[Rfam]
Rfam assigns this 94-nucleotide RNA sequence from Streptomyces laurentii to the family "che1 RNA". The family's consensus secondary structure is taken from published work.

RNA sequence: UGGACAGGGGGGUUCCUGCUCAGACCGGCAGGACCUGUCCGAUCCGGCCGCGCGCACCGCGUGGCCAGUGGUUGUCGCUCGGGGGUGAUCGCCG
Numbered sequence: 001u002g003g004a005c006a007g008g009g010g011g012g013u014u015c016c017u018g019c020u021c022a023g024a025c026c027g028g029c030a031g032g033a034c035c036u037g038u039c040c041g042a043u044c045c046g047g048c049c050g051c052g053c054g055c056a057c058c059g060c061g062u063g064g065c066c067a068g069u070g071g072u073u074g075u076c077g078c079u080c081g082g083g084g085g086u087g088a089u090c091g092c093c094g
Stems, first nucleotide, its partner, number of pairs: 001041008014033007046066008
It is annotated as a small RNA.